[Rfam]
RNA sequence: UGUCUCCUCCACCUCCUCUAUUGGUGGAUUCAGCCCCCGGCUUUACAGCCUGGGGCUUUUUUU
Numbered sequence: 001u002g003u004c005u006c007c008u009c010c011a012c013c014u015c016c017u018c019u020a021u022u023g024g025u026g027g028a029u030u031c032a033g034c035c036c037c038c039g040g041c042u043u044u045a046c047a048g049c050c051u052g053g054g055g056c057u058u059u060u061u062u063u
Base pairs, nucleotide, nucleotide: 008028009027010026011025012024013023033056034055035054036053037052039050040049
RNA: Betaproteobacteria toxic small RNA
Organism: Delftia acidovorans